A member of the RNA family "Small nucleolar RNA SNORD112" from Dipodomys ordii, 79 nucleotides long. The base pairs follow the family's consensus structure, which was predicted with WAR. Rfam classes the family as a C/D-box small nucleolar RNA. A reference for the family is Cavaille et al. (2002), "Identification of tandemly-repeated C/D snoRNA genes at the imprinted human 14q32 domain reminiscent of those at the Prader-Willi/Angelman syndrome region", Hum Mol Genet. Clan: SNORD74 clan. Its family is annotated with RNA processing and nucleolus in the Gene Ontology.
[Rfam]
RNA sequence: UGGACCAGUGAUGACAGACAAUGUUUAUGAACAAAGGCUCGUGAUUAAUCCAGUUCUGCACAGACCGCACAGGUCCAUG
Dot-bracket structure: ((((((.................................................................))))))..